[Rfam]
Overview
The family of this 96-nucleotide RNA from Lentivirus humimdef1 is "HIV primer binding site (PBS)". This family consists of several, structured HIV primer binding sites (PBSs). tRNA(3)(Lys) binds to the PBS to initiate reverse transcription. On this family, see Song et al., Nucleic Acids Res 2021: "The three-way junction structure of the HIV-1 PBS-segment binds host enzyme important for viral infectivity".
RNA sequence: CUCUGGUAACUAGAGAUCCCUCAGAUCACUCUAGUUAGUGUGAAAAUCUCUAGCAGUGGCGCCCGAACAGGGACUUGAAAAGCGAAAGUAAAAGGG
Numbered sequence: 001c002u003c004u005g006g007u008a009a010c011u012a013g014a015g016a017u018c019c020c021u022c023a024g025a026u027c028a029c030u031c032u033a034g035u036u037a038g039u040g041u042g043a044a045a046a047u048c049u050c051u052a053g054c055a056g057u058g059g060c061g062c063c064c065g066a067a068c069a070g071g072g073a074c075u076u077g078a079a080a081a082g083c084g085a086a087a088g089u090a091a092a093a094g095g096g
Base pairs, nucleotide, nucleotide: 001096002095003094004093010053011052012051013050014049015048016047017046019042020040022038024036025035026034055089057087060084061083062072063071064070074082075081